[Rfam]
RNA sequence: UCCAUCCUUUGCUCAGUGGUCAGUGUAGGUCCUGUUCUCCUCCAGCAGCUACAUCUGGCUACUGGGUCUCUGAUGUCGUUC
Numbered sequence: 001u002c003c004a005u006c007c008u009u010u011g012c013u014c015a016g017u018g019g020u021c022a023g024u025g026u027a028g029g030u031c032c033u034g035u036u037c038u039c040c041u042c043c044a045g046c047a048g049c050u051a052c053a054u055c056u057g058g059c060u061a062c063u064g065g066g067u068c069u070c071u072g073a074u075g076u077c078g079u080u081c
Stems, first nucleotide, its partner, number of pairs: 013065006020058003023054006032048004
The record is an 81-nucleotide sequence from Carassius auratus, which matches "mir-221 microRNA precursor family" in Rfam. The literature on the family includes a 2008 paper in J Virol by Yao et al., "MicroRNA profile of Marek's disease virus-transformed T-cell line MSB-1: predominance of virus-encoded microRNAs". Its family is annotated with miRNA-mediated post-transcriptional gene silencing and RISC complex in the Gene Ontology. A search with the family's covariance model found it, with a score of 70 bits. Pairs were carried over by alignment from the consensus structure, which was predicted with RNAalifold.